[Rfam]
RNA sequence: AUGCUUUGCUUAAUUAUCUUUUGCAUCACACUUUUUGUUCUGCAUCUUUACUAGUAAAGCUAUAAAGAUUGUUCCUCUUGCUAUCCAUCGCUCCUUUUGUUGUGUAUUUGGACGUUGGGGUACUACAUUA
Numbered sequence: 001a002u003g004c005u006u007u008g009c010u011u012a013a014u015u016a017u018c019u020u021u022u023g024c025a026u027c028a029c030a031c032u033u034u035u036u037g038u039u040c041u042g043c044a045u046c047u048u049u050a051c052u053a054g055u056a057a058a059g060c061u062a063u064a065a066a067g068a069u070u071g072u073u074c075c076u077c078u079u080g081c082u083a084u085c086c087a088u089c090g091c092u093c094c095u096u097u098u099g100u101u102g103u104g105u106a107u108u109u110g111g112a113c114g115u116u117g118g119g120g121u122a123c124u125a126c127a128u129u130a
Stems, first nucleotide, its partner, number of pairs: 001063002003060003008055003012049002016045001022044004028038003071123002074120004079114002084112004093102001
Description
A member of the RNA family "Small nucleolar RNA snoR136" from Solanum commersonii, 130 nucleotides long. Gene Ontology terms of the family: nucleolus and RNA processing. The family has 8 seed sequences and 452 matches in Rfam 15.1. Rfam classes the family as an H/ACA-box small nucleolar RNA. The literature on the family includes a 2009 paper in Nucleic Acids Res by Chen and Wu, "Mining small RNA sequencing data: a new approach to identify small nucleolar RNAs in Arabidopsis".